[Rfam]
Notes
The family of this 199-nucleotide RNA sequence from Mycolicibacterium sp. P9-64 is "Actinobacteria sRNA Ms_IGR-5". It is annotated as a small RNA. Lineage of the source: Bacteria > Bacillati > Actinomycetota > Actinomycetes > Mycobacterium (subgen. Mycolicibacterium).

Nucleotides: 199
Base pairs, nucleotide, nucleotide: 014060015059016058017057018056019055062122063121064120065119066118067117069116070115071114072113074110075109076108141193142192143191144190145189146188147187148186149185150184151183152182153181155174156173158171159170160169
Number, partner (000 for none) and nucleotide at each position: 001000a002000c003000a004000c005000a006000a007000g008000g009000a010000a011000g012000g013000a014060g015059g016058u017057g018056g019055u020000c021000c022000g023000a024000c025000a026000a027000a028000u029000u030000g031000a032000u033000u034000g035000a036000c037000u038000c039000a040000u041000g042000g043000a044000c045000a046000u047000g048000u049000g050000a051000g052000g053000u054000g055019g056018c057017u058016g059015c060014u061000a062122g063121c064120u065119a066118g067117c068000a069116g070115c071114g072113c073000c074110g075109g076108g077000c078000g079000c080000a081000u082000u083000c084000g085000u086000u087000g088000c089000u090000c091000u092000a093000c094000g095000c096000g097000c098000a099000a100000g101000u102000g103000a104000a105000u106000c107000a108076c109075c110074u111000g112000c113072g114071c115070g116069c117067g118066c119065u120064g121063g122062c123000g124000a125000a126000u127000u128000c129000c130000c131000g132000g133000c134000a135000g136000c137000c138000a139000c140000c141193c142192g143191g144190c145189c146188c147187c148186c149185g150184a151183g152182c153181c154000c155174c156173u157000c158171g159170g160169u161000c162000c163000g164000u165000c166000c167000a168000a169160a170159c171158c172000a173156g174155g175000a176000a177000c178000c179000a180000a181153g182152g183151c184150u185149c186148g187147g188146g189145g190144g191143c192142c193141g194000c195000u196000c197000c198000g199000u